RNA: Purine riboswitch aptamer
Organism: Aneurinibacillus migulanus
RNA sequence: GUAAAAAUGAAAGCAAAAACUCGUAUAAUAGCAGGGAUAGGGCCUGCAAGUUUCUACCAGAUUGCCGUAAACAAUCUGACUACGGGUGAAAAUGAGAAUUUC
Numbered sequence: 001g002u003a004a005a006a007a008u009g010a011a012a013g014c015a016a017a018a019a020c021u022c023g024u025a026u027a028a029u030a031g032c033a034g035g036g037a038u039a040g041g042g043c044c045u046g047c048a049a050g051u052u053u054c055u056a057c058c059a060g061a062u063u064g065c066c067g068u069a070a071a072c073a074a075u076c077u078g079a080c081u082a083c084g085g086g087u088g089a090a091a092a093u094g095a096g097a098a099u100u101u102c
Stems, first nucleotide, its partner, number of pairs: 019087007029049001031047005058078007
Dot-bracket structure: ..................(((((((...(.(((((.......))))).)........(((((((.......)))))))..)))))))...............